[Rfam]
RNA: Fluoride riboswitch aptamer (crcB RNA motif)
Organism: Pediococcus claussenii
RNA sequence: AUAACAACCAGCGAUGGUGUUCGCUGUAAAUAUCUGACGAUUGAUGACACCUGCUUCUGA
Numbered sequence: 001a002u003a004a005c006a007a008c009c010a011g012c013g014a015u016g017g018u019g020u021u022c023g024c025u026g027u028a029a030a031u032a033u034c035u036g037a038c039g040a041u042u043g044a045u046g047a048c049a050c051c052u053g054c055u056u057c058u059g060a
Stems, first nucleotide, its partner, number of pairs: 010025004016051006032041003